[Rfam]
A member of the RNA family "MIR6151 microRNA precursor family" from Nicotiana tabacum, 71 nucleotides long. The family's consensus secondary structure was predicted with RNAalifold. Rfam 15.1 lists 930 matches to the family in 3 species. Taxonomically the source falls in Nicotiana (Eukaryota, Streptophyta, Gunneridae, Solanaceae).
RNA sequence: GAUCGUUGUAUGAGUGUGAGGUGUUGGAUUGAUUUCACUCAAUCCAAGCCCCACAUUCAUCAGGGGCUUGU
Numbered sequence: 001g002a003u004c005g006u007u008g009u010a011u012g013a014g015u016g017u018g019a020g021g022u023g024u025u026g027g028a029u030u031g032a033u034u035u036c037a038c039u040c041a042a043u044c045c046a047a048g049c050c051c052c053a054c055a056u057u058c059a060u061c062a063g064g065g066g067c068u069u070g071u
Stems, first nucleotide, its partner, number of pairs: 004066001006064002010060009020050003024047009